ACEA small nucleolar RNA U3: a 232-nucleotide sequence from Plasmodium relictum.
By type it is a C/D-box small nucleolar RNA.
About the family: Small nucleolar RNAs (snoRNAs) are involved in the processing and modification of rRNA in the nucleolus.
The match comes from Rfam's covariance-model search (76 bits).
Nucleotides: 232
Base pairs, nucleotide, nucleotide: 001042002041003040005039007036009035010034011033012032018029021026046067050066051065053063054062075230076229077228078227093216094215096212097211098210099209103167104166105165106164113157114156115155117151118150119149120148121147122146123145124144168205169204170203171202173200174199175198176197177196
Number, partner (000 for none) and nucleotide at each position: 001042u002041c003040g004000a005039c006000g007036a008000a009035u010034a011033c012032u013000u014000a015000g016000u017000c018029a019000a020000g021026a022000u023000c024000a025000u026021u027000g028000c029018u030000a031000u032012a033011g034010u035009a036007u037000u038000u039005g040003u041002g042001a043000u044000g045000u046067u047000u048000u049000a050066u051065u052000a053063u054062u055000a056000u057000a058000a059000u060000a061000c062054a063053a064000c065051a066050g067046a068000u069000u070000a071000u072000c073000a074000a075230a076229a077228g078227u079000g080000a081000u082000g083000a084000u085000g086000a087000a088000a089000u090000g091000a092000c093216g094215c095000a096212g097211c098210u099209c100000u101000a102000c103167a104166a105165u106164g107000a108000a109000u110000a111000u112000a113157u114156u115155u116000c117151g118150a119149a120148u121147u122146u123145u124144u125000c126000a127000a128000u129000u130000u131000c132000u133000u134000u135000u136000g137000a138000a139000a140000u141000u142000g143000u144124a145123a146122a147121a148120a149119u150118u151117c152000c153000g154000a155115a156114a157113a158000g159000u160000c161000u162000g163000a164106u165105a166104u167103u168205u169204u170203u171202u172000u173200a174199g175198c176197a177196a178000u179000u180000a181000a182000a183000u184000a185000a186000u187000a188000u189000u190000a191000u192000u193000u194000u195000u196177u197176u198175g199174c200173u201000a202171a203170a204169a205168g206000c207000c208000u209099g210098a211097g212096c213000a214000u215094g216093c217000c218000g219000u220000c221000c222000g223000c224000u225000g226000a227078a228077c229076u230075u231000a232000c